[Rfam]
Shown here is a 101-nucleotide RNA from Homoserinibacter sp. GY 40078, a member of the family "TPP riboswitch aptamer (THI element)". The match comes from Rfam's covariance-model search (54 bits). The family's consensus secondary structure is taken from published work.
RNA sequence: CACGGGAGUCCGGUGUGCCGGGCUGAGAGGAAGCUCAUCAAGCUUCGACCGUCGAACCUGAUCCGGAUCAUGCCGGCGCAGGGAGGCAUCUCGGGGUUCGG
Numbered sequence: 001c002a003c004g005g006g007a008g009u010c011c012g013g014u015g016u017g018c019c020g021g022g023c024u025g026a027g028a029g030g031a032a033g034c035u036c037a038u039c040a041a042g043c044u045u046c047g048a049c050c051g052u053c054g055a056a057c058c059u060g061a062u063c064c065g066g067a068u069c070a071u072g073c074c075g076g077c078g079c080a081g082g083g084a085g086g087c088a089u090c091u092c093g094g095g096g097u098u099c100g101g
Stems, first nucleotide, its partner, number of pairs: 001085001002052004008023005030046005057082004063076004